A member of the RNA family "Fluoride riboswitch aptamer (crcB RNA motif)" from Salipaludibacillus agaradhaerens, 66 nucleotides long. The match comes from Rfam's covariance-model search (51 bits). NCBI's taxonomy places the organism under Bacteria, Bacillati, Bacillota, Bacillaceae, Salipaludibacillus.
RNA sequence: UAAUAAAUCGGCGAUGGAGAUCCGCCAUUAACCGCUCAAUUUUGAGAUAAUGACUCCUGCUAAGUA
Numbered sequence: 001u002a003a004u005a006a007a008u009c010g011g012c013g014a015u016g017g018a019g020a021u022c023c024g025c026c027a028u029u030a031a032c033c034g035c036u037c038a039a040u041u042u043u044g045a046g047a048u049a050a051u052g053a054c055u056c057c058u059g060c061u062a063a064g065u066a
Base pairs, nucleotide, nucleotide: 010026011025012024013023016057017056018055019054021052035046036045037044